[Rfam]
RNA sequence: CUGGUUUCAACGCCUAACCCUGCCGGGAAUCCAGCCGCCGUUACGUAACCCGGCAGGGGUGGAGGACCCACUUCUUGUGGUGGCCAUUGUGCUGCCUUGGGGUGAAGCCGUUCCAGUAUUUUAAACUGAAACGGCCGGGCCGAUUCCUUGCCCGAAUCCGACAGCUAACUUCAGCGGCGUUCGGAAAGGAAUC
Numbered sequence: 001c002u003g004g005u006u007u008c009a010a011c012g013c014c015u016a017a018c019c020c021u022g023c024c025g026g027g028a029a030u031c032c033a034g035c036c037g038c039c040g041u042u043a044c045g046u047a048a049c050c051c052g053g054c055a056g057g058g059g060u061g062g063a064g065g066a067c068c069c070a071c072u073u074c075u076u077g078u079g080g081u082g083g084c085c086a087u088u089g090u091g092c093u094g095c096c097u098u099g100g101g102g103u104g105a106a107g108c109c110g111u112u113c114c115a116g117u118a119u120u121u122u123a124a125a126c127u128g129a130a131a132c133g134g135c136c137g138g139g140c141c142g143a144u145u146c147c148u149u150g151c152c153c154g155a156a157u158c159c160g161a162c163a164g165c166u167a168a169c170u171u172c173a174g175c176g177g178c179g180u181u182c183g184g185a186a187a188g189g190a191a192u193c
Stems, first nucleotide, its partner, number of pairs: 011179004018058010060173005069099002100159003108134004137153004